[Rfam]
RNA sequence: ACGGCAUAAUGAUGAACGAUUCAUUCUGAGAUCUUUUUCUCUGAGCGAUCCUAAUCCUCCUACUCAUUCUGA
Numbered sequence: 001a002c003g004g005c006a007u008a009a010u011g012a013u014g015a016a017c018g019a020u021u022c023a024u025u026c027u028g029a030g031a032u033c034u035u036u037u038u039c040u041c042u043g044a045g046c047g048a049u050c051c052u053a054a055u056c057c058u059c060c061u062a063c064u065c066a067u068u069c070u071g072a
Base pairs, nucleotide, nucleotide: 006067007066009064027048031042
The record is a 72-nucleotide RNA sequence from Asparagus officinalis, which matches "Small nucleolar RNA Z105" in Rfam. The match comes from Rfam's covariance-model search (51 bits). Rfam classes the family as a C/D-box small nucleolar RNA. On this family, see Chen et al., Nucleic Acids Res 2003: "The high diversity of snoRNAs in plants: identification and comparative study of 120 snoRNA genes from Oryza sativa". The source organism's lineage runs through Eukaryota, Streptophytina, Embryophyta, Petrosaviidae and Asparagus. The family's consensus secondary structure was predicted with CMfinder. Rfam links the family to the GO terms RNA processing and nucleolus.